[Rfam]
RNA sequence: AUGGAAGUGAUGAAUUUUUCCCCAGAUGAUUCGACGCUGAAAUAAUUGAGCGCUCCUUUAUUUUCUCCCUUUGUGGAGAAAAUCCAAGCCAAUAUUCUGAUCCAU
Numbered sequence: 001a002u003g004g005a006a007g008u009g010a011u012g013a014a015u016u017u018u019u020c021c022c023c024a025g026a027u028g029a030u031u032c033g034a035c036g037c038u039g040a041a042a043u044a045a046u047u048g049a050g051c052g053c054u055c056c057u058u059u060a061u062u063u064u065c066u067c068c069c070u071u072u073g074u075g076g077a078g079a080a081a082a083u084c085c086a087a088g089c090c091a092a093u094a095u096u097c098u099g100a101u102c103c104a105u
Base pairs, nucleotide, nucleotide: 001105002104003103004102005101
Small nucleolar RNA Z103: a 105-nucleotide sequence from Salvia splendens. On this family, see Chen et al., Nucleic Acids Res 2003: "The high diversity of snoRNAs in plants: identification and comparative study of 120 snoRNA genes from Oryza sativa". The base pairs follow the family's consensus structure, which was predicted with PFOLD. The family's RNA type in Rfam is C/D-box small nucleolar RNA.